[Rfam]
RNA sequence: UGACGGCACUCUGGAGAGACUUAUAAAAGAGCACCGAAGGAGUAACCUGAAUAAAUUUCAGGGUAAUCUCUCAGGUAAAAGGACAGAGCAAAGGAC
Numbered sequence: 001u002g003a004c005g006g007c008a009c010u011c012u013g014g015a016g017a018g019a020c021u022u023a024u025a026a027a028a029g030a031g032c033a034c035c036g037a038a039g040g041a042g043u044a045a046c047c048u049g050a051a052u053a054a055a056u057u058u059c060a061g062g063g064u065a066a067u068c069u070c071u072c073a074g075g076u077a078a079a080a081g082g083a084c085a086g087a088g089c090a091a092a093g094g095a096c
Stems, first nucleotide, its partner, number of pairs: 009088005020031003033076003036072002040070003046063002

A member of the RNA family "Glycine riboswitch aptamer" from Orenia marismortui, 96 nucleotides long. The match comes from Rfam's covariance-model search (63 bits). Gene Ontology term of the family: glycine biosynthetic process.